[Rfam]
The record is a 181-nucleotide sequence from Pleuronectes platessa, which matches "Small nucleolar RNA SNORA23" in Rfam.
Rfam classes the family as an H/ACA-box small nucleolar RNA.
Rfam 15.1 lists 1,092 matches to the family in 632 species.
Pairs were carried over by alignment from the consensus structure, which was predicted with RNAalifold.
Gene Ontology terms of the family: RNA processing and nucleolus.
The literature on the family includes a 2001 paper in EMBO J by Huttenhofer et al., "RNomics: an experimental approach that identifies 201 candidates for novel, small, non-messenger RNAs in mouse".
About the family: The members of this family belong to the H/ACA class of snoRNAs which are thought to guide the sites of modification of uridines to pseudouridines.
RNA sequence: GGUGACUGGUGUGCACAGUGUUGGUCUGUGUUAUGUGUUGCUGUCGGAUUGCGUUUUGCAGUCUUGGCAGCAGUGCUCACUCCACACCUACAGCCAUAGAAAAACGAGAGAUCAUAGUACUGGUCCUUGACGUCUGUAUGGACUUCUCACCAUUGAUCAGCCUCCAAAUUCUCUGACAAGC
Dot-bracket structure: ............(.(..............((...(((((((.(((((..(((.....)))..).)))).)))))).).))........).)...............(((((........((((((...((.(((......))).))........)))))).........))))).......
Numbered sequence: 001g002g003u004g005a006c007u008g009g010u011g012u013g014c015a016c017a018g019u020g021u022u023g024g025u026c027u028g029u030g031u032u033a034u035g036u037g038u039u040g041c042u043g044u045c046g047g048a049u050u051g052c053g054u055u056u057u058g059c060a061g062u063c064u065u066g067g068c069a070g071c072a073g074u075g076c077u078c079a080c081u082c083c084a085c086a087c088c089u090a091c092a093g094c095c096a097u098a099g100a101a102a103a104a105c106g107a108g109a110g111a112u113c114a115u116a117g118u119a120c121u122g123g124u125c126c127u128u129g130a131c132g133u134c135u136g137u138a139u140g141g142a143c144u145u146c147u148c149a150c151c152a153u154u155g156a157u158c159a160g161c162c163u164c165c166a167a168a169u170u171c172u173c174u175g176a177c178a179a180g181c
Stems, first nucleotide, its partner, number of pairs: 013091001015089001030080002035077001036075006043068004047063001050060003107174005120160006129146002132143003